[Rfam]
RNA sequence: UAUGGAGGUCGGGGCCAGGAGCCCCCCCCCGAGCCCAGGAUAACUUUGAACGUCGGGGGGCA
Numbered sequence: 001u002a003u004g005g006a007g008g009u010c011g012g013g014g015c016c017a018g019g020a021g022c023c024c025c026c027c028c029c030c031g032a033g034c035c036c037a038g039g040a041u042a043a044c045u046u047u048g049a050a051c052g053u054c055g056g057g058g059g060g061c062a
Stems, first nucleotide, its partner, number of pairs: 008041003012036004016031001018029002022060006